[Rfam]
RNA sequence: CGACCCGGCCCGACCUGCGCUCCCUAUGCACUACCCACUGGGGAGAAAGCACCCCGCCAAGCCCCACCCCUCCCUCCCGCCGGGCAGACUCACCCCCGCGAGUGAAUAUGCCCAAGUGAGCUGGAUUCUGGACCCGUUGCCUGCCCUACGCUCAGCGCCAGCAGUACACACAAUCCCAGACAUGCGACGGCCCUCGCCGGGACUGGCAUCCCAGUGCGAGGGCCUGACCACCGAGGAAGCAGGACCUUCCCG
Number, nucleotide and partner (000 for none) at each position: 001c000002g000003a000004c000005c000006c000007g232008g231009c000010c000011c000012g000013a000014c000015c000016u000017g076018c000019g074020c000021u000022c000023c000024c000025u000026a000027u000028g000029c000030a000031c000032u000033a000034c000035c000036c000037a000038c000039u000040g000041g000042g000043g000044a000045g000046a000047a000048a000049g000050c000051a000052c000053c000054c000055c000056g000057c000058c000059a000060a000061g000062c000063c000064c000065c000066a000067c000068c000069c000070c000071u000072c000073c000074c019075u000076c017077c000078c000079g000080c000081c000082g000083g000084g000085c000086a000087g000088a000089c000090u105091c104092a103093c102094c000095c100096c000097c000098g000099c000100g095101a000102g093103u092104g091105a090106a000107u000108a000109u000110g000111c000112c000113c000114a000115a000116g000117u000118g000119a000120g156121c155122u154123g153124g152125a000126u000127u000128c000129u000130g000131g000132a000133c000134c000135c000136g000137u000138u000139g000140c000141c000142u000143g000144c000145c000146c000147u000148a000149c000150g000151c000152u124153c123154a122155g121156c120157g000158c000159c000160a000161g000162c000163a000164g000165u000166a000167c000168a000169c000170a000171c000172a000173a000174u000175c000176c000177c000178a000179g000180a000181c000182a000183u000184g000185c000186g000187a000188c000189g224190g223191c222192c221193c220194u000195c218196g217197c216198c000199g212200g211201g210202a209203c000204u000205g000206g000207c000208a000209u202210c201211c200212c199213a000214g000215u000216g197217c196218g195219a000220g193221g192222g191223c190224c189225u000226g000227a000228c000229c000230a000231c008232c007233g000234a000235g250236g249237a248238a247239g246240c000241a000242g000243g000244a000245c000246c239247u238248u237249c236250c235251c000252g000
The record is a 252-nucleotide RNA from Streptomyces naganishii, which matches "Streptomyces sRNA 4677" in Rfam. The literature on the family includes a 2014 paper in PLoS One by Hindra et al., "Complex intra-operonic dynamics mediated by a small RNA in Streptomyces coelicolor". The match comes from Rfam's covariance-model search (167 bits). From the family's description: Located in the intergenic region between anti-sigma factor SCO4677 gene and a putative regulatory protein gene SCO4676. scr4677 expression requires the SCO4677 activity and scr4677 sRNA itself seem to affect the levels of the SCO4676-associated transcripts. NCBI's taxonomy places the organism under Bacteria, Actinomycetota, Actinomycetes, Kitasatosporales, Streptomyces naganishii.